[Rfam]
RNA sequence: GGUCAGUGAUGAAUAGUAAAAGGUGUGAUUUGCCCAGAAUAUUGCUUCCCUUACCAUCUAACUCCCAGCAGUUACUCUUCCAUCGAGCUGUAGAAAUGCUAUGCGUGGGAGAAUAUUUGCUGAUAUAUUGUGAUAUAUUCAGCUUGUUUCCUUGUAGAGUAUUGAGUAGACAUGGCUGAAAUCGUUAUCCAACAUAAAACAAUAAAGGAGUUUUAAGUACUGGAGGCAAGUAGAUGGGUAUAUGAUCUCAGCUUUUUAAACUGAGACC
Numbered sequence: 001g002g003u004c005a006g007u008g009a010u011g012a013a014u015a016g017u018a019a020a021a022g023g024u025g026u027g028a029u030u031u032g033c034c035c036a037g038a039a040u041a042u043u044g045c046u047u048c049c050c051u052u053a054c055c056a057u058c059u060a061a062c063u064c065c066c067a068g069c070a071g072u073u074a075c076u077c078u079u080c081c082a083u084c085g086a087g088c089u090g091u092a093g094a095a096a097u098g099c100u101a102u103g104c105g106u107g108g109g110a111g112a113a114u115a116u117u118u119g120c121u122g123a124u125a126u127a128u129u130g131u132g133a134u135a136u137a138u139u140c141a142g143c144u145u146g147u148u149u150c151c152u153u154g155u156a157g158a159g160u161a162u163u164g165a166g167u168a169g170a171c172a173u174g175g176c177u178g179a180a181a182u183c184g185u186u187a188u189c190c191a192a193c194a195u196a197a198a199a200c201a202a203u204a205a206a207g208g209a210g211u212u213u214u215a216a217g218u219a220c221u222g223g224a225g226g227c228a229a230g231u232a233g234a235u236g237g238g239u240a241u242a243u244g245a246u247c248u249c250a251g252c253u254u255u256u257u258a259a260a261c262u263g264a265g266a267c268c
Stems, first nucleotide, its partner, number of pairs: 001268004039248001041246003046225004052219002062210004066122006079108002084103002087100001088098001130190001132189004145172005151166003154162001
A member of the RNA family "Small Cajal body specific RNA 6" from Notechis scutatus, 268 nucleotides long.
The organism belongs to Notechis, within Eukaryota.
Rfam classes the family as a small Cajal body RNA.
U88 is small Cajal body specific RNA (scaRNA). scaRNAs are a novel class of small nuclear RNAs which localise to the Cajal bodies. U88 is found associated with both fibrillarin and Gar1p and co-localises with coilin in Cajal bodies.